RNA sequence: GACGUUCUUUUCGCAGGCGGAGCUCGACCGCCGGUCCCGGACAUGACCGCGUUCAUCGAAGAACACCGAGAGGCAAUCGGGUUCGAGCCGAUCUGCAGGCACCUGCCGAUCGCCUCA
Dot-bracket structure: ...............(((((.......)))))..............................................(((.......((.((.((((....)))).)).)).))).
The family of this 117-nucleotide sequence from Hasllibacter halocynthiae is "ALIL pseudoknot". Rfam links the family to the GO term positive regulation of translational frameshifting. By type it is a cis-regulatory element. The source organism's lineage runs through Bacteria, Pseudomonadati, Pseudomonadota, Roseobacteraceae and Hasllibacter. The match comes from Rfam's covariance-model search (86 bits).